[Rfam]
RNA sequence: CCCACGGCUUACGCCGUGGGCUAAGUGCUGUCGUCCCUGCCGGGACU
Numbered sequence: 001c002c003c004a005c006g007g008c009u010u011a012c013g014c015c016g017u018g019g020g021c022u023a024a025g026u027g028c029u030g031u032c033g034u035c036c037c038u039g040c041c042g043g044g045a046c047u
Base pairs, nucleotide, nucleotide: 001020002019003018004017005016006015007014008013033046034045035044036043037042
RNA: Acido-Lenti-1 RNA